Source information:
The family of this 57-nucleotide RNA from Oryza meyeriana is "Bacillus-plasmid RNA". The organism belongs to Oryza meyeriana, within Eukaryota. The family's RNA type in Rfam is small RNA. A search with the family's covariance model found it, with a score of 39 bits.

[Rfam]
RNA sequence: UUUGUCCAACGGUAAGCGGAACGAAGUGAGCAUUAAGGAGUGGACGAACCCACUGUG
Numbered sequence: 001u002u003u004g005u006c007c008a009a010c011g012g013u014a015a016g017c018g019g020a021a022c023g024a025a026g027u028g029a030g031c032a033u034u035a036a037g038g039a040g041u042g043g044a045c046g047a048a049c050c051c052a053c054u055g056u057g
Stems, first nucleotide, its partner, number of pairs: 001048006009041002